[Rfam]
RNA sequence: AUUAGAUAAAGGCAAACUUAUCGAAAGGUAAGGACGCAAAGCUAGGACCUAACGCUGAAAAGCUAUGGCAGCCAAGUUACCAAA
Numbered sequence: 001a002u003u004a005g006a007u008a009a010a011g012g013c014a015a016a017c018u019u020a021u022c023g024a025a026a027g028g029u030a031a032g033g034a035c036g037c038a039a040a041g042c043u044a045g046g047a048c049c050u051a052a053c054g055c056u057g058a059a060a061a062g063c064u065a066u067g068g069c070a071g072c073c074a075a076g077u078u079a080c081c082a083a084a
Stems, first nucleotide, its partner, number of pairs: 012037002017032006040078004045073002048068002054063003
Rfam assigns this 84-nucleotide sequence from Natronobacillus azotifigens to the family "c-di-GMP-I riboswitch aptamer". Taxonomically the source falls in Natronobacillus (Bacteria, Bacillati, Caryophanales, Bacillaceae). The family's consensus secondary structure is taken from published work.